The family of this 133-nucleotide sequence from Nomascus leucogenys is "Small nucleolar RNA SNORA71". The base pairs follow the family's consensus structure, which was predicted with PFOLD. About the family: The members of this family belong to the H/ACA class of snoRNAs which bind a number of proteins (including dyskerin, Gar1p and Nop10p) to form snoRNP complexes. This class of snoRNAs are thought to guide the sites of modification of uridines to pseudouridines by forming direct base pairing interactions with substrate RNAs. This family includes U71 (SNORA71), ACA39 (SNORA39) and ACA60 (SNORA60). U71 and ACA60 are predicted to guide the pseudouridylation of U406 and U1004 in 18S rRNA respectively. It scores 76 bits against the family's covariance model. The literature on the family includes a 1997 paper in Genes Dev by Ganot et al., "The family of box ACA small nucleolar RNAs is defined by an evolutionarily conserved secondary structure and ubiquitous sequence elements essential for RNA accumulation". The organism belongs to Nomascus, within Eukaryota. Gene Ontology terms of the family: nucleolus and RNA processing.
[Rfam]
RNA sequence: GUCUGCAUUUGAAAGUGAUCAUCAGCUGCCUGCGUCUUGGUCAUCGAUAGUACAGGCAGGUGAACUGCGCAAAGCAUUUUCUGUAUUUGGAGGGUCCAUCUCCAUCCUUGGAAACGCUGGUGCUUUUCUCACA
Numbered sequence: 001g002u003c004u005g006c007a008u009u010u011g012a013a014a015g016u017g018a019u020c021a022u023c024a025g026c027u028g029c030c031u032g033c034g035u036c037u038u039g040g041u042c043a044u045c046g047a048u049a050g051u052a053c054a055g056g057c058a059g060g061u062g063a064a065c066u067g068c069g070c071a072a073a074g075c076a077u078u079u080u081c082u083g084u085a086u087u088u089g090g091a092g093g094g095u096c097c098a099u100c101u102c103c104a105u106c107c108u109u110g111g112a113a114a115c116g117c118u119g120g121u122g123c124u125u126u127u128c129u130c131a132c133a
Stems, first nucleotide, its partner, number of pairs: 001057005007051003015044007025035002067130001069128001071126005086114003091109004